mir-196 microRNA precursor family: a 75-nucleotide RNA from Monodelphis domestica. NCBI's taxonomy places the organism under Eukaryota, Dipnotetrapodomorpha, Amniota, Didelphimorphia, Monodelphis.
RNA sequence: UCUGUGAUUUAGGUAGUUUCCUGUUGUUGGGGCUCCACCUUUCUCUCGACAGCACGAUACUGCCUUCAUUACUUC
Number, nucleotide and partner (000 for none) at each position: 001u000002c000003u000004g072005u071006g070007a069008u068009u000010u000011a065012g064013g063014u062015a061016g060017u059018u000019u057020c000021c000022u054023g053024u052025u051026g050027u049028u048029g047030g046031g045032g000033c000034u000035c000036c000037a000038c000039c000040u000041u000042u000043c000044u000045c031046u030047c029048g028049a027050c026051a025052g024053c023054a022055c000056g000057a019058u000059a017060c016061u015062g014063c013064c012065u011066u000067c000068a008069u007070u006071a005072c004073u000074u000075c000